[Rfam]
RNA: Fluoride riboswitch aptamer (crcB RNA motif)
Organism: Paraburkholderia phenazinium
RNA sequence: UCGCCUGCUGGAGAUGGCAUUCUCCUUUAACCGCCCAGACAGGGCUGAUGAUGCCUGCAUGCCC
Numbered sequence: 001u002c003g004c005c006u007g008c009u010g011g012a013g014a015u016g017g018c019a020u021u022c023u024c025c026u027u028u029a030a031c032c033g034c035c036c037a038g039a040c041a042g043g044g045c046u047g048a049u050g051a052u053g054c055c056u057g058c059a060u061g062c063c064c
Base pairs, nucleotide, nucleotide: 010025011024012023013022016055017054018053019052020051021050033045034044035043036042